[Rfam]
A member of the RNA family "mir-8799 microRNA precursor family" from Canis lupus, 94 nucleotides long.

RNA sequence: CGGGGAGUGCCAGAUCCUGGGCUGUGUUCCCCGGCACCCUGGGCUAUGGGGCCUCCACUACUGGAAUCGCACUCCAGGUGCUACACAGUCCCCA
Numbered sequence: 001c002g003g004g005g006a007g008u009g010c011c012a013g014a015u016c017c018u019g020g021g022c023u024g025u026g027u028u029c030c031c032c033g034g035c036a037c038c039c040u041g042g043g044c045u046a047u048g049g050g051g052c053c054u055c056c057a058c059u060a061c062u063g064g065a066a067u068c069g070c071a072c073u074c075c076a077g078g079u080g081c082u083a084c085a086c087a088g089u090c091c092c093c094a
Stems, first nucleotide, its partner, number of pairs: 002093005009086001012082002016078002019075003023071004027065002031063001033059002041053001043052003
Dot-bracket structure: .(((((..(..((..((.(((.((((((..(.((......(.(((....))))....))...)))..)))).))).))..))...)..))))).

Overview:
The organism belongs to Canis lupus, within Eukaryota.